[Rfam]
RNA sequence: GGCGGGAUAGCUCAGCUGGUUAGAGCGCACGACUCAUAAUCGUGAGGUCGCGGGAUCGAGCCCCGCUCCCGCUA
Numbered sequence: 001g002g003c004g005g006g007a008u009a010g011c012u013c014a015g016c017u018g019g020u021u022a023g024a025g026c027g028c029a030c031g032a033c034u035c036a037u038a039a040u041c042g043u044g045a046g047g048u049c050g051c052g053g054g055a056u057c058g059a060g061c062c063c064c065g066c067u068c069c070c071g072c073u074a
Stems, first nucleotide, its partner, number of pairs: 001073007010026004028044005050066005
Dot-bracket structure: (((((((..((((.........)))).(((((.......))))).....(((((.......)))))))))))).
The family of this 74-nucleotide sequence from Ornithinimicrobium avium is "tRNA". Lineage of the source: Bacteria > Bacillati > Actinomycetota > Ornithinimicrobiaceae > Ornithinimicrobium. Gene Ontology term of the family: triplet codon-amino acid adaptor activity. Transfer RNA (tRNA) molecules are approximately 80 nucleotides in length. Their secondary structure includes four short double-helical elements and three loops (D, anti-codon, and T loops).